[Rfam]
Rfam assigns this 61-nucleotide sequence from Prolemur simus to the family "U7 small nuclear RNA". Rfam describes the family as follows. Animal histone pre-mRNAs are spliced by a different mechanism than nuclear pre-mRNAs and self-splicing introns. The organism belongs to Prolemur, within Eukaryota.
RNA sequence: AAGAGUUACAGCUCUUUUACAAUUUGUCUAGCAGUUUUUCCAGUCCUCAUGGGAAGACCGC
Numbered sequence: 001a002a003g004a005g006u007u008a009c010a011g012c013u014c015u016u017u018u019a020c021a022a023u024u025u026g027u028c029u030a031g032c033a034g035u036u037u038u039u040c041c042a043g044u045c046c047u048c049a050u051g052g053g054a055a056g057a058c059c060g061c
Stems, first nucleotide, its partner, number of pairs: 034058009043048001